[Rfam]
RNA sequence: ACCUUAUCAAGAGUGGUUUAGGGACGGGCCCUUUGAUGCCACAGCAACCUGCACUUGCAAGGUGCUAAUUCCCGCGGAUUUUCCGAGCGAUGAGUU
Numbered sequence: 001a002c003c004u005u006a007u008c009a010a011g012a013g014u015g016g017u018u019u020a021g022g023g024a025c026g027g028g029c030c031c032u033u034u035g036a037u038g039c040c041a042c043a044g045c046a047a048c049c050u051g052c053a054c055u056u057g058c059a060a061g062g063u064g065c066u067a068a069u070u071c072c073c074g075c076g077g078a079u080u081u082u083c084c085g086a087g088c089g090a091u092g093a094g095u096u
Base pairs, nucleotide, nucleotide: 001096003094004093005092006091007090008089013042014041015040016039017038021031022030023029025074026073027072028071043066044065045064046063048062049061050059051058052057075085076084077083078082
The record is a 96-nucleotide sequence from Anaerotruncus sp. CAG:528, which matches "SAM riboswitch aptamer (S box leader)" in Rfam.
The SAM riboswitch is found upstream of a number of genes which code for proteins involved in methionine or cysteine biosynthesis in Gram-positive bacteria.
Its family is annotated with regulation of gene expression in the Gene Ontology.